[Rfam]
RNA sequence: CGCCCGAUAGCGCCGAGCUCCAUCCGUCGACGCGGGGGACCACGAACCACCUGGAUGGAGGCGGGGGACCCACCGGUCCACCGAAGGACCUGGGGCCGCCAGCGGCCCCUUGGGGUGAAGCCGAGACCGGGUGACCGGGACCGGCCGGGUGACCUCUCCCACCCGAACCCGACAGCUGACCUCGCGGGCGCCGACGAGAGGACCU
Numbered sequence: 001c002g003c004c005c006g007a008u009a010g011c012g013c014c015g016a017g018c019u020c021c022a023u024c025c026g027u028c029g030a031c032g033c034g035g036g037g038g039a040c041c042a043c044g045a046a047c048c049a050c051c052u053g054g055a056u057g058g059a060g061g062c063g064g065g066g067g068a069c070c071c072a073c074c075g076g077u078c079c080a081c082c083g084a085a086g087g088a089c090c091u092g093g094g095g096c097c098g099c100c101a102g103c104g105g106c107c108c109c110u111u112g113g114g115g116u117g118a119a120g121c122c123g124a125g126a127c128c129g130g131g132u133g134a135c136c137g138g139g140a141c142c143g144g145c146c147g148g149g150u151g152a153c154c155u156c157u158c159c160c161a162c163c164c165g166a167a168c169c170c171g172a173c174a175g176c177u178g179a180c181c182u183c184g185c186g187g188g189c190g191c192c193g194a195c196g197a198g199a200g201g202a203c204c205u
Base pairs, nucleotide, nucleotide: 011190012189013188014187018060019059020058021057022056023055024054025053026052061185062184063183064182065181066180071112072111113170114169115168121144122143123142147164148163149162150161
This 205-nucleotide sequence from Mycolicibacterium litorale belongs to the Rfam family "c-di-AMP riboswitch aptamer (ydaO/yuaA leader)". The match comes from Rfam's covariance-model search (49 bits).